[Rfam]
RNA: U12 minor spliceosomal RNA
Organism: Amphibalanus amphitrite
Nucleotides: 152
Stems, first nucleotide, its partner, number of pairs: 004023005032053005039046001055071005085152005092147007101135001104132005110126005
Number, partner (000 for none) and nucleotide at each position: 001000g002000u003000g004023c005022c006021u007020u008019a009000a010000a011000c012000u013000a014000a015000u016000g017000a018000g019008u020007a021006a022005g023004g024000a025000a026000a027000u028000u029000a030000a031000c032053g033052a034051g035050c036049c037000c038000u039046g040000g041000u042000g043000a044000c045000g046039c047000u048000u049036g050035g051034c052033u053032c054000c055071g056070c057069u058068g059067a060000g061000a062000u063000c064000a065000c066000c067059u068058u069057a070056g071055c072000a073000u074000a075000a076000a077000u078000u079000u080000u081000u082000c083000u084000a085152g086151g087150g088149g089148u090000a091000c092147a093146g094145g095144u096143c097142g098141u099000c100000c101135c102000a103000c104132g105131g106130g107129c108128c109000g110126g111125c112124a113123g114122c115000c116000u117000a118000c119000u120000u121000u122114g123113c124112u125111g126110c127000u128108g129107g130106c131105c132104u133000a134000g135101g136000c137000g138000a139000u140000u141098g142097c143096g144095a145094u146093c147092u148089g149088c150087c151086c152085c